RNA sequence: GCGAGACGGGUAGGCCUGCGGUUGUGCCCAACCGAUAAACUGUUCUCGGACGAUGUCGGGCGCAGCCCCCGUCCCGUCCGCCAAUGAUCAGUCAGCAGCCGCUGCAACCCCAGGGAG
Numbered sequence: 001g002c003g004a005g006a007c008g009g010g011u012a013g014g015c016c017u018g019c020g021g022u023u024g025u026g027c028c029c030a031a032c033c034g035a036u037a038a039a040c041u042g043u044u045c046u047c048g049g050a051c052g053a054u055g056u057c058g059g060g061c062g063c064a065g066c067c068c069c070c071g072u073c074c075c076g077u078c079c080g081c082c083a084a085u086g087a088u089c090a091g092u093c094a095g096c097a098g099c100c101g102c103u104g105c106a107a108c109c110c111c112a113g114g115g116a117g
Stems, first nucleotide, its partner, number of pairs: 048079005057071004093104004
Streptomyces-metK RNA: a 117-nucleotide RNA. The match comes from Rfam's covariance-model search (116 bits).